[Rfam]
RNA sequence: GACUAGCUACACUAUGUGAGAGAGACGCUGCUACUAGCAAAUGUGAUAGUAUAACAUCGUGUGUAACUGAGUGGGUUUAGUACGUAUGCGUGAUACUCGUAAUCAUGAAUCGUGCAUGCUAGUGGGGUUUGACUCCACUAGUAUCUUGAAGAUUCUCCUUCCUCAGCGAUC
Numbered sequence: 001g002a003c004u005a006g007c008u009a010c011a012c013u014a015u016g017u018g019a020g021a022g023a024g025a026c027g028c029u030g031c032u033a034c035u036a037g038c039a040a041a042u043g044u045g046a047u048a049g050u051a052u053a054a055c056a057u058c059g060u061g062u063g064u065a066a067c068u069g070a071g072u073g074g075g076u077u078u079a080g081u082a083c084g085u086a087u088g089c090g091u092g093a094u095a096c097u098c099g100u101a102a103u104c105a106u107g108a109a110u111c112g113u114g115c116a117u118g119c120u121a122g123u124g125g126g127g128u129u130u131g132a133c134u135c136c137a138c139u140a141g142u143a144u145c146u147u148g149a150a151g152a153u154u155c156u157c158c159u160u161c162c163u164c165a166g167c168g169a170u171c
Base pairs, nucleotide, nucleotide: 008051009050010049056170057169058168059167060166068165069164070163071162073158074157075156080115081114082113083112084111089107090106091105092104093103094102117143118142119141120140121139122138